[Rfam]
RNA: Small nucleolar RNA Z39
Organism: Xenopus laevis
RNA sequence: GCACAGAUGAUGAGAACACGUGACUAUGAGAAAUCCAGUGAUAGUGUAAACGCUUACUGAUGUG
Numbered sequence: 001g002c003a004c005a006g007a008u009g010a011u012g013a014g015a016a017c018a019c020g021u022g023a024c025u026a027u028g029a030g031a032a033a034u035c036c037a038g039u040g041a042u043a044g045u046g047u048a049a050a051c052g053c054u055u056a057c058u059g060a061u062g063u064g
Stems, first nucleotide, its partner, number of pairs: 002064004013055001015054001017052001023045005